[Rfam]
RNA sequence: UAUUUUAGGAAAGAACCGGACCUCGAGACCCGGAUCAGGAAAAAAAUGUACAGAAGAAGAAGGGUGAAAAGUUUAAACGAAAGUUUAACGUCUGUGAGUUAGAAAGGGUACUAACCACACAGUGAGGAACCCGCACUGACCCCUUCAACUUCG
Number, nucleotide and partner (000 for none) at each position: 001u048002a047003u046004u045005u044006u043007a000008g000009g000010a000011a000012a000013g000014a035015a000016c033017c032018g031019g030020a000021c000022c000023u000024c000025g000026a000027g000028a000029c000030c019031c018032g017033g016034a000035u014036c000037a000038g000039g000040a000041a000042a000043a006044a005045a004046a003047u002048g001049u000050a000051c000052a000053g152054a151055a150056g149057a000058a000059g146060a145061a144062g143063g142064g141065u000066g000067a000068a000069a000070a000071g000072u000073u000074u087075a086076a085077a084078c083079g000080a000081a000082a000083g078084u077085u076086u075087a074088a000089c000090g000091u000092c000093u119094g118095u117096g116097a000098g115099u114100u113101a112102g111103a000104a000105a000106g000107g000108g000109u000110a000111c102112u101113a100114a099115c098116c096117a095118c094119a093120c138121a137122g136123u135124g134125a000126g000127g000128a000129a000130c000131c000132c000133g000134c124135a123136c122137u121138g120139a000140c000141c064142c063143c062144u061145u060146c059147a000148a000149c056150u055151u054152c053153g000
The family of this 153-nucleotide RNA is "IMES-5 RNA". By type it is a small RNA.